[Rfam]
RNA sequence: UUGGUUAGAAAUCGUCUCAGGUCAUCUCUGCAACGGUUAUGACAUCAAGGCCCGCGACGCCGGCAGCGGGCACCAACGGCAGAAGAUUCUGCCCGACCUCAUCAAGGGGUCUCAGGGAUAUUACAGUCAAC
Number, nucleotide and partner (000 for none) at each position: 001u000002u000003g000004g000005u000006u000007a000008g000009a000010a000011a000012u000013c000014g000015u000016c000017u000018c000019a000020g000021g043022u042023c041024a040025u039026c000027u000028c036029u035030g000031c000032a000033a000034c000035g029036g028037u000038u000039a025040u024041g023042a022043c021044a000045u000046c000047a000048a000049g000050g071051c070052c069053c068054g067055c066056g000057a000058c000059g000060c000061c000062g000063g000064c000065a000066g055067c054068g053069g052070g051071c050072a000073c000074c000075a000076a000077c000078g093079g092080c091081a090082g089083a088084a000085g000086a000087u000088u083089c082090u081091g080092c079093c078094c000095g111096a110097c109098c108099u107100c106101a000102u000103c000104a000105a000106g100107g099108g098109g097110u096111c095112u000113c000114a000115g000116g000117g000118a000119u000120a000121u000122u000123a000124c000125a000126g000127u000128c000129a000130a000131c000
The family of this 131-nucleotide RNA from Pseudomonas savastanoi is "rmf RNA". Pairs were carried over by alignment from the consensus structure, which is taken from published work. The sequence is in the family's curated seed alignment.